[Rfam]
RNA: Small nucleolar RNA SNORD127
RNA sequence: UGGCAACCGUGAUGAUUCCCUCGACUCUGCAGGGCUUUUUUUAAAGCUGUGAGAUGGAGACGCCAGUCCCUCUAAACUGAUGUUGCCA
Numbered sequence: 001u002g003g004c005a006a007c008c009g010u011g012a013u014g015a016u017u018c019c020c021u022c023g024a025c026u027c028u029g030c031a032g033g034g035c036u037u038u039u040u041u042u043a044a045a046g047c048u049g050u051g052a053g054a055u056g057g058a059g060a061c062g063c064c065a066g067u068c069c070c071u072c073u074a075a076a077c078u079g080a081u082g083u084u085g086c087c088a
Base pairs, nucleotide, nucleotide: 001088002087003086004085005084006083007082